[Rfam]
RNA sequence: AUUUAAAUUUUCUAGGGUUCCACAGCUUUGGCUGGCCUGGUCCGAGAGAAAAUGCAUAUUGCAGCUGCCCUAUGUUACACGGAGGGAUAAAAGCCCGGGAGGA
Numbered sequence: 001a002u003u004u005a006a007a008u009u010u011u012c013u014a015g016g017g018u019u020c021c022a023c024a025g026c027u028u029u030g031g032c033u034g035g036c037c038u039g040g041u042c043c044g045a046g047a048g049a050a051a052a053u054g055c056a057u058a059u060u061g062c063a064g065c066u067g068c069c070c071u072a073u074g075u076u077a078c079a080c081g082g083a084g085g086g087a088u089a090a091a092a093g094c095c096c097g098g099g100a101g102g103a
Stems, first nucleotide, its partner, number of pairs: 007053006015043002020040002023034004054076001055074004061068001078098001080101001084096003

Shown here is a 103-nucleotide sequence from Bacillus sp. 165, a member of the family "Guanidine-I riboswitch aptamer". The pairing is the family consensus, mapped onto this sequence. Rfam 15.1 lists 1,509 matches to the family in 1,281 species. About the family: This family represents a conserved RNA structure found upstream of the ykkC and yxkD genes in Bacillus subtilis and related genes in other bacteria. The function of this family is unclear although it has been suggested that it may function to switch on efflux pumps and detoxification systems in response to harmful environmental molecules. A search with the family's covariance model found it, with a score of 74 bits.